[Rfam]
RNA sequence: UAGUAUCGGUGAAGAUGCCGAUUACCCGCAAUGGGACGAAAAGACCCUGUGAACCUUUACUAUAGCUUCGUAUUGACUUCGGGUAAAUGAUGUGUAGGAUAGGUGGGAAACUGUGAAUCGGCUUCGCCAGGAGUCGAGGAGUUGACGUUGAAAUACCACCCUUUAUUUAUCUGGAGCCUAACUUCUGAACAAGAAGGACAUUGCGUGGUGGGUAGUUUGACUGGGGUGGUCGCCUCCAAAAGAGUAACGGAGGCUUUCAAAGGUACCCUCAGCACGCUUGGCAACCGUGCGCAGAGUGUAAUGGCAUAAGGGUGCUUGACUGCAAGACCGACAAGUCGAGCAGGUGCGAAAGCAGGACAUAGUGAUCCGGUGGUUCCGUAUGGAAGGGCCAUCGCUCAUAGGAUAAAAGGUACUCCGGGGAUAACAGGCUAGUCUCCCCCAAGAGCUCACAUCGACGGGGAGGUUCGGCACCUCGAUGUCGGCUCGUCACAUCCUGGGGCUGGAGAAGGUCCCAAGGGUUGGGCUGUUCGCCCAUUAAAGUGGCACGCGAGCUGGGUUCAGAACGUCGUGAGACAGUUCGGUCUCUAUCUAUUGCGGGCG
Numbered sequence: 001u002a003g004u005a006u007c008g009g010u011g012a013a014g015a016u017g018c019c020g021a022u023u024a025c026c027c028g029c030a031a032u033g034g035g036a037c038g039a040a041a042a043g044a045c046c047c048u049g050u051g052a053a054c055c056u057u058u059a060c061u062a063u064a065g066c067u068u069c070g071u072a073u074u075g076a077c078u079u080c081g082g083g084u085a086a087a088u089g090a091u092g093u094g095u096a097g098g099a100u101a102g103g104u105g106g107g108a109a110a111c112u113g114u115g116a117a118u119c120g121g122c123u124u125c126g127c128c129a130g131g132a133g134u135c136g137a138g139g140a141g142u143u144g145a146c147g148u149u150g151a152a153a154u155a156c157c158a159c160c161c162u163u164u165a166u167u168u169a170u171c172u173g174g175a176g177c178c179u180a181a182c183u184u185c186u187g188a189a190c191a192a193g194a195a196g197g198a199c200a201u202u203g204c205g206u207g208g209u210g211g212g213u214a215g216u217u218u219g220a221c222u223g224g225g226g227u228g229g230u231c232g233c234c235u236c237c238a239a240a241a242g243a244g245u246a247a248c249g250g251a252g253g254c255u256u257u258c259a260a261a262g263g264u265a266c267c268c269u270c271a272g273c274a275c276g277c278u279u280g281g282c283a284a285c286c287g288u289g290c291g292c293a294g295a296g297u298g299u300a301a302u303g304g305c306a307u308a309a310g311g312g313u314g315c316u317u318g319a320c321u322g323c324a325a326g327a328c329c330g331a332c333a334a335g336u337c338g339a340g341c342a343g344g345u346g347c348g349a350a351a352g353c354a355g356g357a358c359a360u361a362g363u364g365a366u367c368c369g370g371u372g373g374u375u376c377c378g379u380a381u382g383g384a385a386g387g388g389c390c391a392u393c394g395c396u397c398a399u400a401g402g403a404u405a406a407a408a409g410g411u412a413c414u415c416c417g418g419g420g421a422u423a424a425c426a427g428g429c430u431a432g433u434c435u436c437c438c439c440c441a442a443g444a445g446c447u448c449a450c451a452u453c454g455a456c457g458g459g460g461a462g463g464u465u466c467g468g469c470a471c472c473u474c475g476a477u478g479u480c481g482g483c484u485c486g487u488c489a490c491a492u493c494c495u496g497g498g499g500c501u502g503g504a505g506a507a508g509g510u511c512c513c514a515a516g517g518g519u520u521g522g523g524c525u526g527u528u529c530g531c532c533c534a535u536u537a538a539a540g541u542g543g544c545a546c547g548c549g550a551g552c553u554g555g556g557u558u559c560a561g562a563a564c565g566u567c568g569u570g571a572g573a574c575a576g577u578u579c580g581g582u583c584u585c586u587a588u589c590u591a592u593u594g595c596g597g598g599c600g
Stems, first nucleotide, its partner, number of pairs: 005022005025598008034590003038585002046419004051415002053411005059216004066208002069205004075178001077176014092161001102160005109143003118137008182196005219231004232254006255400001257357002263315006269295002272290005296305002320343004326337003345354003368394007376387002428469003432466001433463007443453002480555001481553004485547001486544005493518002496513006520534005561579004565574003
Overview
This 600-nucleotide part of an RNA from Apibacter mensalis belongs to the Rfam family "Bacterial large subunit ribosomal RNA". Lineage of the source: Bacteria > Pseudomonadati > Flavobacteriales > Weeksellaceae > Apibacter. On this family, see Yusupov et al., Science 2001: "Crystal structure of the ribosome at 5.5 A resolution". Rfam links the family to the GO terms structural constituent of ribosome and ribosome.